[Rfam]
RNA sequence: AGAGCGGGCCUUUCAGGCAUCCUCUCCUAAUGAAACUUGGCCAGCGUUCGCGCUGGCCUUUUUUUUGGCAUUC
Numbered sequence: 001a002g003a004g005c006g007g008g009c010c011u012u013u014c015a016g017g018c019a020u021c022c023u024c025u026c027c028u029a030a031u032g033a034a035a036c037u038u039g040g041c042c043a044g045c046g047u048u049c050g051c052g053c054u055g056g057c058c059u060u061u062u063u064u065u066u067g068g069c070a071u072u073c
Stems, first nucleotide, its partner, number of pairs: 008018004039058008
RNA: Makes More Granules Regulator RNA (mmgR)